The record is a 120-nucleotide RNA sequence from Chrysochloris asiatica, which matches "Small nucleolar RNA SNORA32" in Rfam.
The match comes from Rfam's covariance-model search (62 bits).
From the family's description: ACA32 is a member of the H/ACA class of snoRNA that guide the sites of modification of uridines to pseudouridines.
Rfam classes the family as an H/ACA-box small nucleolar RNA.
The family has 9 seed sequences and 615 matches in Rfam 15.1.
RNA sequence: UGGCCAUGACUAAGGCCUUUAGAAUGCAGUUCCUGAAUUGCUUGGGCAUGAUCAUACACAAACUUCCCACUACGUUUUGCCUUUGCCCCCUUGCUUAACAUCCAACAGAUUGGGGGAUGU
Numbered sequence: 001u002g003g004c005c006a007u008g009a010c011u012a013a014g015g016c017c018u019u020u021a022g023a024a025u026g027c028a029g030u031u032c033c034u035g036a037a038u039u040g041c042u043u044g045g046g047c048a049u050g051a052u053c054a055u056a057c058a059c060a061a062a063c064u065u066c067c068c069a070c071u072a073c074g075u076u077u078u079g080c081c082u083u084u085g086c087c088c089c090c091u092u093g094c095u096u097a098a099c100a101u102c103c104a105a106c107a108g109a110u111u112g113g114g115g116g117a118u119g120u
Stems, first nucleotide, its partner, number of pairs: 003052001005050003010045003026041004066114004074106003084100002